[Rfam]
RNA: c-di-GMP-I riboswitch aptamer
Organism: Alkalibaculum sporogenes
RNA sequence: AAAAAGAAAAGGCAAACCUGAUGAAAGUUGGGGACGCAAAGCUAAGAGUCUAAGGUAUAUAAAAAUUAUACUAUGAUAGUCGAGCCACCUAA
Numbered sequence: 001a002a003a004a005a006g007a008a009a010a011g012g013c014a015a016a017c018c019u020g021a022u023g024a025a026a027g028u029u030g031g032g033g034a035c036g037c038a039a040a041g042c043u044a045a046g047a048g049u050c051u052a053a054g055g056u057a058u059a060u061a062a063a064a065a066u067u068a069u070a071c072u073a074u075g076a077u078a079g080u081c082g083a084g085c086c087a088c089c090u091a092a
Stems, first nucleotide, its partner, number of pairs: 012037002017032006041085003046081002048077003055071004